[Rfam]
RNA: TrkB IRES
RNA sequence: GCAGCAGCAGCAACUUGCUGCUGCUGCAGCUGCUCCAGCUGCUCCAGCUGCUGCUGCUGCAGCAGCAGCAAGGUGCUGCUGCUGCUGUAGCACUGCUCGCAGCAGCAGCAAGGUGCUGCUGCUGCUGCUGAGCUACCAGCAGCAGCAGCAGCCUGCUGCUGCUGCUGCUGCUCCUGCUGCUGCUACUGUUGAGCUCCAGCAGCAGCAGCUUCUUGCUGCUGCUGCUGCUGCUGCUGUUGAGCUCCCAGCAGCUGCUGCUGCUGCUGCUCAGCAGCAGCAGCAGCUGCUGAGCUGCCUGCUGCUGCUGCUACAG
Numbered sequence: 001g002c003a004g005c006a007g008c009a010g011c012a013a014c015u016u017g018c019u020g021c022u023g024c025u026g027c028a029g030c031u032g033c034u035c036c037a038g039c040u041g042c043u044c045c046a047g048c049u050g051c052u053g054c055u056g057c058u059g060c061a062g063c064a065g066c067a068g069c070a071a072g073g074u075g076c077u078g079c080u081g082c083u084g085c086u087g088u089a090g091c092a093c094u095g096c097u098c099g100c101a102g103c104a105g106c107a108g109c110a111a112g113g114u115g116c117u118g119c120u121g122c123u124g125c126u127g128c129u130g131a132g133c134u135a136c137c138a139g140c141a142g143c144a145g146c147a148g149c150a151g152c153c154u155g156c157u158g159c160u161g162c163u164g165c166u167g168c169u170g171c172u173c174c175u176g177c178u179g180c181u182g183c184u185a186c187u188g189u190u191g192a193g194c195u196c197c198a199g200c201a202g203c204a205g206c207a208g209c210u211u212c213u214u215g216c217u218g219c220u221g222c223u224g225c226u227g228c229u230g231c232u233g234c235u236g237u238u239g240a241g242c243u244c245c246c247a248g249c250a251g252c253u254g255c256u257g258c259u260g261c262u263g264c265u266g267c268u269c270a271g272c273a274g275c276a277g278c279a280g281c282a283g284c285u286g287c288u289g290a291g292c293u294g295c296c297u298g299c300u301g302c303u304g305c306u307g308c309u310a311c312a313g
Base pairs, nucleotide, nucleotide: 001267002266003265004264005263006262007261008260009259010258020069021068022067023066024065025064026063072256073255074254075253078252079251080250084140087136088135091130092129093127095125096124099122100121101120102119105116106115142183143182144181145180146179148177149176150175151173155171156170158168159167161165187247188246191244192243194241195240196239198238199237200233201232202231203230205228206227207226208225209224270309271308272307273306274305275304276303277302278301279300280299281298283295284294286292287291